[Rfam]
RNA sequence: GCAGGAAGCCUGUGAUGUCUUAGCCUUUAUGUCUGAACCUGGCUGAAGGCUCUUCUGAAGACACUCUCUUAGGCUCUGAGGCUUCCAGAGGA
Numbered sequence: 001g002c003a004g005g006a007a008g009c010c011u012g013u014g015a016u017g018u019c020u021u022a023g024c025c026u027u028u029a030u031g032u033c034u035g036a037a038c039c040u041g042g043c044u045g046a047a048g049g050c051u052c053u054u055c056u057g058a059a060g061a062c063a064c065u066c067u068c069u070u071a072g073g074c075u076c077u078g079a080g081g082c083u084u085c086c087a088g089a090g091g092a
Base pairs, nucleotide, nucleotide: 004086005085006084007083008082009081010080
RNA: Small nucleolar RNA SNORD91 family
Organism: Eudromia elegans